[Rfam]
RNA: mir-592 microRNA precursor family
RNA sequence: UUGUGUCAAUAUGCGAUGAUGUGUUGUGAUGGCACAGCGUCAUCACGUGGUGACGCAACA
Numbered sequence: 001u002u003g004u005g006u007c008a009a010u011a012u013g014c015g016a017u018g019a020u021g022u023g024u025u026g027u028g029a030u031g032g033c034a035c036a037g038c039g040u041c042a043u044c045a046c047g048u049g050g051u052g053a054c055g056c057a058a059c060a
Stems, first nucleotide, its partner, number of pairs: 001058008010049004015044007022036003026033002